[Rfam]
RNA sequence: UCUGGGGUAUGGCAUAAGUACAGAGAAGCCAUGACAGG
Numbered sequence: 001u002c003u004g005g006g007g008u009a010u011g012g013c014a015u016a017a018g019u020a021c022a023g024a025g026a027a028g029c030c031a032u033g034a035c036a037g038g
Stems, first nucleotide, its partner, number of pairs: 001038004008034001009032005
RNA: MAT2A 3'UTR stem loop D